This 69-nucleotide RNA sequence from Galemys pyrenaicus belongs to the Rfam family "Small nucleolar RNA SNORD2".
The base pairs follow the family's consensus structure, which was predicted with WAR.
NCBI's taxonomy places the organism under Eukaryota, Eumetazoa, Teleostomi, Dipnotetrapodomorpha, Galemys.
The family's RNA type in Rfam is C/D-box small nucleolar RNA.
[Rfam]
RNA sequence: AUGUGAAAUAAUGAAAAUCAUCUUUUGGAACUGACCAAAAAUGAAGAAAAUACUCAUUGCUGGUCAUUU
Numbered sequence: 001a002u003g004u005g006a007a008a009u010a011a012u013g014a015a016a017a018u019c020a021u022c023u024u025u026u027g028g029a030a031c032u033g034a035c036c037a038a039a040a041a042u043g044a045a046g047a048a049a050a051u052a053c054u055c056a057u058u059g060c061u062g063g064u065c066a067u068u069u
Stems, first nucleotide, its partner, number of pairs: 001069001003067004